[Rfam]
RNA sequence: AAUACCUAAAACAACGAAAGCCCUAACCUCUCUUUCGUCCUUGCGGCUCCGAGACCGCGCCAGUGUGAAUCAGAUACUACUUUAAAAU
Numbered sequence: 001a002a003u004a005c006c007u008a009a010a011a012c013a014a015c016g017a018a019a020g021c022c023c024u025a026a027c028c029u030c031u032c033u034u035u036c037g038u039c040c041u042u043g044c045g046g047c048u049c050c051g052a053g054a055c056c057g058c059g060c061c062a063g064u065g066u067g068a069a070u071c072a073g074a075u076a077c078u079a080c081u082u083u084a085a086a087a088u
Stems, first nucleotide, its partner, number of pairs: 035068003040063002042059005048053001
RNA: BsrC